tRNA: an 82-nucleotide sequence from Fistulifera solaris. A search with the family's covariance model found it, with a score of 56 bits. The source organism's lineage runs through Eukaryota, Stramenopiles, Bacillariophyceae, Naviculales and Fistulifera.
RNA sequence: GACAUCGUGUCCGAGUGGUUAAGGAGAAUGAUUCGAAAUCAUUUGGGUUUCACCCGCGCAGGUUCGAGUCCUGUCGAUGUCG
Numbered sequence: 001g002a003c004a005u006c007g008u009g010u011c012c013g014a015g016u017g018g019u020u021a022a023g024g025a026g027a028a029u030g031a032u033u034c035g036a037a038a039u040c041a042u043u044u045g046g047g048u049u050u051c052a053c054c055c056g057c058g059c060a061g062g063u064u065c066g067a068g069u070c071c072u073g074u075c076g077a078u079g080u081c082g
Base pairs, nucleotide, nucleotide: 001081002080003079004078005077006076007075010025011024012023027043028042029041030040031039058074059073060072061071062070